[Rfam]
RNA: FMN riboswitch aptamer (RFN element)
RNA sequence: AUACGUCUUCGGGGCAGGGUGAAAUUCCCGACCGGCGGUAUAGUCCGCGACCUUGGGCUGUCAGGCAUCGUCUUGGCCCAGGUUGAACUGGUGUGAUUCCAGUACCGACAGUAAAGUCUGGAUGGUAGAAGCGGAUA
Numbered sequence: 001a002u003a004c005g006u007c008u009u010c011g012g013g014g015c016a017g018g019g020u021g022a023a024a025u026u027c028c029c030g031a032c033c034g035g036c037g038g039u040a041u042a043g044u045c046c047g048c049g050a051c052c053u054u055g056g057g058c059u060g061u062c063a064g065g066c067a068u069c070g071u072c073u074u075g076g077c078c079c080a081g082g083u084u085g086a087a088c089u090g091g092u093g094u095g096a097u098u099c100c101a102g103u104a105c106c107g108a109c110a111g112u113a114a115a116g117u118c119u120g121g122a123u124g125g126u127a128g129a130a131g132c133g134g135a136u137a
Stems, first nucleotide, its partner, number of pairs: 004134001007131004017029003031117002033107002035048004043105002052082009087103005109120003